[Rfam]
The family of this 37-nucleotide sequence from Microvirgula aerodenitrificans is "abiF RNA".
The organism belongs to Microvirgula, within Bacteria.
Rfam's curators write: Actinobacteria, Bacteroidetes, Clostridia, Proteobacteria, one Clostridia phage.

RNA sequence: CCCGCCAUGCCUCUCUUUGAUGCACACUCUGGCGGGU
Numbered sequence: 001c002c003c004g005c006c007a008u009g010c011c012u013c014u015c016u017u018u019g020a021u022g023c024a025c026a027c028u029c030u031g032g033c034g035g036g037u
Stems, first nucleotide, its partner, number of pairs: 001036006008024003